Description: The record is an 89-nucleotide RNA from Acer saccharum, which matches "Small nucleolar RNA Z221/R21b" in Rfam. Rfam links the family to the GO terms nucleolus and RNA processing. NCBI's taxonomy places the organism under Eukaryota, Viridiplantae, Euphyllophyta, Magnoliopsida, Acer.
[Rfam]
RNA sequence: GGGCAGUGAUGAGGAAUUAUGAGAAAGUCAUGCACCACGCAGAGUGAAAAAUGUUGAUAUAUCUCUCAAACCCAUUUCUAUCUGAGCUC
Numbered sequence: 001g002g003g004c005a006g007u008g009a010u011g012a013g014g015a016a017u018u019a020u021g022a023g024a025a026a027g028u029c030a031u032g033c034a035c036c037a038c039g040c041a042g043a044g045u046g047a048a049a050a051a052u053g054u055u056g057a058u059a060u061a062u063c064u065c066u067c068a069a070a071c072c073c074a075u076u077u078c079u080a081u082c083u084g085a086g087c088u089c
Stems, first nucleotide, its partner, number of pairs: 001089004

Description
By type it is a C/D-box small nucleolar RNA.